[Rfam]
RNA sequence: GUGCGAUCCGCUAACCGGUCAGGCCGUGUCGCGGAAGGUUAGAUAACCCGCCCUAAGUUCGCGAAACGCGAAGAAAGGUGAGCA
Numbered sequence: 001g002u003g004c005g006a007u008c009c010g011c012u013a014a015c016c017g018g019u020c021a022g023g024c025c026g027u028g029u030c031g032c033g034g035a036a037g038g039u040u041a042g043a044u045a046a047c048c049c050g051c052c053c054u055a056a057g058u059u060c061g062c063g064a065a066a067c068g069c070g071a072a073g074a075a076a077g078g079u080g081a082g083c084a
Base pairs, nucleotide, nucleotide: 002084003083004082007035008034009033010032011031016026017025018024019023037048038047039046040045049080050079051078052077058072059071060070061069062068063067
RNA: SucA RNA motif
Organism: Herbaspirillum sp. SJZ107